[Rfam]
Record summary: The record is a 101-nucleotide RNA sequence from Kryptolebias marmoratus, which matches "Cyanobacterial functional RNA 13" in Rfam. Pairs were carried over by alignment from the consensus structure, which was predicted with mfold. For this family Rfam cites "The challenge of regulation in a minimal photoautotroph: non-coding RNAs in Prochlorococcus" (Steglich et al., PLoS Genet, 2008).
RNA sequence: AUGUUCUAAAUCAAACUGGUUGAUUUUUGGAAAAUCAACCCAGGAGACAGUUUGUUUUCAAGUAGCUGAAAACAAACUAAUAGUCUCCUGGGUUGUUGAAA
Numbered sequence: 001a002u003g004u005u006c007u008a009a010a011u012c013a014a015a016c017u018g019g020u021u022g023a024u025u026u027u028u029g030g031a032a033a034a035u036c037a038a039c040c041c042a043g044g045a046g047a048c049a050g051u052u053u054g055u056u057u058u059c060a061a062g063u064a065g066c067u068g069a070a071a072a073c074a075a076a077c078u079a080a081u082a083g084u085c086u087c088c089u090g091g092g093u094u095g096u097u098g099a100a101a
Stems, first nucleotide, its partner, number of pairs: 002013002018040008049078007057070002084099002